[Rfam]
RNA sequence: UUGAACAUUGAUGAUCUCUACAGACCUGUAAUGAUUUGCGAAGAUGAUCGUAACUCUUUAUGAACAUCUAAGGGACUGAGUUCUU
Numbered sequence: 001u002u003g004a005a006c007a008u009u010g011a012u013g014a015u016c017u018c019u020a021c022a023g024a025c026c027u028g029u030a031a032u033g034a035u036u037u038g039c040g041a042a043g044a045u046g047a048u049c050g051u052a053a054c055u056c057u058u059u060a061u062g063a064a065c066a067u068c069u070a071a072g073g074g075a076c077u078g079a080g081u082u083c084u085u
Stems, first nucleotide, its partner, number of pairs: 003083004
About this RNA:
The record is an 85-nucleotide RNA from Ipomoea nil, which matches "Small nucleolar RNA SNORD25" in Rfam. The family's RNA type in Rfam is C/D-box small nucleolar RNA. A reference for the family is Qu et al. (2001), "Identification of 10 novel snoRNA gene clusters from Arabidopsis thaliana", Nucleic Acids Res. Lineage of the source: Eukaryota > Spermatophyta > Gunneridae > Convolvulaceae > Ipomoea. The family's consensus secondary structure was predicted with PFOLD. Rfam links the family to the GO terms nucleolus and RNA processing.